[Rfam]
RNA sequence: GAGCAUCCUUAAUAAACCCCCCAUUUGCUAUUUGUGGUCUCUGGGACAAGAAAGGGUGCAAGAUCAAUCUUAGAAUUAUCCAAAGCUGAGAGCAAUGUUUCAGUAGCUCUUGGCUAUUUCACCUCUAAGACAGAA
Numbered sequence: 001g002a003g004c005a006u007c008c009u010u011a012a013u014a015a016a017c018c019c020c021c022c023a024u025u026u027g028c029u030a031u032u033u034g035u036g037g038u039c040u041c042u043g044g045g046a047c048a049a050g051a052a053a054g055g056g057u058g059c060a061a062g063a064u065c066a067a068u069c070u071u072a073g074a075a076u077u078a079u080c081c082a083a084a085g086c087u088g089a090g091a092g093c094a095a096u097g098u099u100u101c102a103g104u105a106g107c108u109c110u111u112g113g114c115u116a117u118u119u120c121a122c123c124u125c126u127a128a129g130a131c132a133g134a135a
Stems, first nucleotide, its partner, number of pairs: 003059004009051002020045004027038004064134002068130007084115007092107002098103001